Annotation: Shown here is an 86-nucleotide RNA sequence from Aquibacillus halophilus, a member of the family "c-di-GMP-I riboswitch aptamer". Taxonomically the source falls in Aquibacillus (Bacteria, Bacillati, Bacillota, Caryophanales). It scores 79 bits against the family's covariance model. Rfam describes the family as follows. GEMM was predicted in a large-scale screen for bacterial structured RNA regulatory elements.

RNA sequence: UUACGACAAAGGCAAACUUAUCGAAAGGUAAGGACGCAAAGCUAAGGCCUAAUGCUCAUUCAAGCUAUGGCAGUCUGGUUACCGAA
Numbered sequence: 001u002u003a004c005g006a007c008a009a010a011g012g013c014a015a016a017c018u019u020a021u022c023g024a025a026a027g028g029u030a031a032g033g034a035c036g037c038a039a040a041g042c043u044a045a046g047g048c049c050u051a052a053u054g055c056u057c058a059u060u061c062a063a064g065c066u067a068u069g070g071c072a073g074u075c076u077g078g079u080u081a082c083c084g085a086a
Stems, first nucleotide, its partner, number of pairs: 012037002017032006040080004045076002047071003054065003